[Rfam]
RNA sequence: CCACUUAAAGUGAGAGUUAGAUGAAACUGAACCAACCUCCAGUCGACCGCCUGUUGAUUGAUUCAGGGUUCAGUUUCCUCUAAUAUCUCACCUUGAAUGG
Numbered sequence: 001c002c003a004c005u006u007a008a009a010g011u012g013a014g015a016g017u018u019a020g021a022u023g024a025a026a027c028u029g030a031a032c033c034a035a036c037c038u039c040c041a042g043u044c045g046a047c048c049g050c051c052u053g054u055u056g057a058u059u060g061a062u063u064c065a066g067g068g069u070u071c072a073g074u075u076u077c078c079u080c081u082a083a084u085a086u087c088u089c090a091c092c093u094u095g096a097a098u099g100g
Base pairs, nucleotide, nucleotide: 005096006095007094008093011090012089013088014087016084017083018082019081020080021079023077024076025075026074027073028072029071030070032068033067
Annotation:
This 100-nucleotide sequence from Hordeum vulgare belongs to the Rfam family "MIR2275 microRNA precursor family". Gene Ontology terms of the family: RISC complex and miRNA-mediated post-transcriptional gene silencing. A search with the family's covariance model found it, with a score of 70 bits. Pairs were carried over by alignment from the consensus structure, which was predicted with RNAalifold. The family has 13 seed sequences and 785 matches in Rfam 15.1.